The family of this 105-nucleotide RNA sequence from Ricinus communis is "MIR403 microRNA precursor family".
RNA sequence: ACCUAUCUCUAGUUUGUGUGUGAAUCUAAUUCAGGCCAUCCAUGUCAGGGCCCUACUAAUCCUAUCCCAUGGUGUUAGAUUCACGCACAAACUCGUGAUCUUUCU
Numbered sequence: 001a002c003c004u005a006u007c008u009c010u011a012g013u014u015u016g017u018g019u020g021u022g023a024a025u026c027u028a029a030u031u032c033a034g035g036c037c038a039u040c041c042a043u044g045u046c047a048g049g050g051c052c053c054u055a056c057u058a059a060u061c062c063u064a065u066c067c068c069a070u071g072g073u074g075u076u077a078g079a080u081u082c083a084c085g086c087a088c089a090a091a092c093u094c095g096u097g098a099u100c101u102u103u104c105u
Stems, first nucleotide, its partner, number of pairs: 001103001005099003011093016028076003036072004

It scores 72 bits against the family's covariance model.